[Rfam]
RNA sequence: CCUCAUACCUUUGGCAUGGGUACGUUUUACAUAGCGUGACAUGAAUGCAAGUAUGAGGUACAUUAAUGACAGCUACAUGCCUUCGGUGUCCACAAUAUAUCUUGUCUGGAUCCCAUCCUCAGAUGCUGUGACAAAA
Numbered sequence: 001c002c003u004c005a006u007a008c009c010u011u012u013g014g015c016a017u018g019g020g021u022a023c024g025u026u027u028u029a030c031a032u033a034g035c036g037u038g039a040c041a042u043g044a045a046u047g048c049a050a051g052u053a054u055g056a057g058g059u060a061c062a063u064u065a066a067u068g069a070c071a072g073c074u075a076c077a078u079g080c081c082u083u084c085g086g087u088g089u090c091c092a093c094a095a096u097a098u099a100u101c102u103u104g105u106c107u108g109g110a111u112c113c114c115a116u117c118c119u120c121a122g123a124u125g126c127u128g129u130g131a132c133a134a135a136a
Stems, first nucleotide, its partner, number of pairs: 001058005015043004022037004070128004089110004094105001
RNA: Small nucleolar RNA SNORA57
Organism: Danaus plexippus